RNA sequence: UGUAAUCCCCAUCGAAGGGGUAGUUCCCCACCCCGGAGCUAAUUUACCAUAUUCCGAAUUC
Numbered sequence: 001u002g003u004a005a006u007c008c009c010c011a012u013c014g015a016a017g018g019g020g021u022a023g024u025u026c027c028c029c030a031c032c033c034c035g036g037a038g039c040u041a042a043u044u045u046a047c048c049a050u051a052u053u054c055c056g057a058a059u060u061c
Stems, first nucleotide, its partner, number of pairs: 017045003021041007
The record is a 61-nucleotide sequence from Lathyrus oleraceus, which matches "Plastid-psbN 5UTR RNA" in Rfam. It scores 72 bits against the family's covariance model. The organism belongs to Lathyrus, within Eukaryota. The base pairs follow the family's consensus structure, which was predicted with LocARNA. Rfam describes the family as follows. Plastid psbN is a non-coding RNA (ncRNA) recognised in plastids.